A member of the RNA family "mir-219 microRNA precursor family" from Hemibagrus wyckioides, 76 nucleotides long. Gene Ontology terms of the family: miRNA-mediated post-transcriptional gene silencing and RISC complex. It scores 64 bits against the family's covariance model. The family has 92 seed sequences and 1,318 matches in Rfam 15.1.

[Rfam]
RNA sequence: UCCGGAGCUGAUUGUCCAAACGCAAUUCUUGUCCCCAAGUAUAAUCAGGAGUUGUGGAUGGACAUCACGCCUCUGA
Numbered sequence: 001u002c003c004g005g006a007g008c009u010g011a012u013u014g015u016c017c018a019a020a021c022g023c024a025a026u027u028c029u030u031g032u033c034c035c036c037a038a039g040u041a042u043a044a045u046c047a048g049g050a051g052u053u054g055u056g057g058a059u060g061g062a063c064a065u066c067a068c069g070c071c072u073c074u075g076a
Stems, first nucleotide, its partner, number of pairs: 002075001004073002007070001009067004014063005021056011